[Rfam]
RNA sequence: GCAUCGCGCGCGGGAGAGAAUCGGUGGGCAGCGAUGCCGACCGGUCGCCGAAGGCGCAACCGGCCCCCGGAAACGCUCAGGCAUCAAGGGCCGCGCGGGAGUG
Numbered sequence: 001g002c003a004u005c006g007c008g009c010g011c012g013g014g015a016g017a018g019a020a021u022c023g024g025u026g027g028g029c030a031g032c033g034a035u036g037c038c039g040a041c042c043g044g045u046c047g048c049c050g051a052a053g054g055c056g057c058a059a060c061c062g063g064c065c066c067c068c069g070g071a072a073a074c075g076c077u078c079a080g081g082c083a084u085c086a087a088g089g090g091c092c093g094c095g096c097g098g099g100a101g102u103g
Stems, first nucleotide, its partner, number of pairs: 007097007020045006047082003050078002054076003060070002
A member of the RNA family "Glycine riboswitch aptamer" from Sediminicoccus sp. KRV36, 103 nucleotides long. The family has 44 seed sequences and 9,425 matches in Rfam 15.1.